[Rfam]
Nucleotides: 195
Stems, first nucleotide, its partner, number of pairs: 005189002012032001014030001016028005035041001050059002062077003079134001081132001084129004091123002095119002100113001102111001104109001136163003140159002143156002167186005
Number, partner (000 for none) and nucleotide at each position: 001000a002000a003000u004000a005189g006188a007000c008000a009000u010000c011000a012032g013000c014030g015000a016028u017027u018026c019025a020024u021000u022000u023000u024020g025019u026018g027017a028016a029000c030014c031000a032012u033000g034000a035041c036000c037000a038000a039000c040000u041035g042000c043000g044000a045000g046000a047000u048000a049000a050059g051058c052000a053000u054000u055000c056000a057000u058051g059050c060000c061000u062077a063076a064075c065000u066000c067000u068000u069000u070000c071000a072000u073000u074000u075064g076063u077062u078000c079134u080000u081132c082000a083000c084129c085128a086127a087126u088000g089000a090000c091123g092122c093000g094000a095119g096118u097000u098000g099000u100113c101000a102111g103000u104109c105000u106000a107000u108000u109104g110000u111102c112000a113100g114000g115000a116000a117000u118096a119095u120000c121000g122092g123091c124000u125000a126087a127086u128085u129084g130000a131000c132081g133000c134079g135000c136163u137162u138161g139000a140159g141158a142000a143156g144155c145000c146000a147000a148000a149000u150000a151000a152000c153000c154000u155144g156143c157000a158141u159140u160000a161138c162137a163136g164000a165000u166000a167186u168185u169184u170183g171182g172000u173000g174000g175000c176000a177000u178000a179000u180000u181000u182171c183170c184169a185168a186167g187000a188006u189005c190000u191000u192000u193000u194000g195000c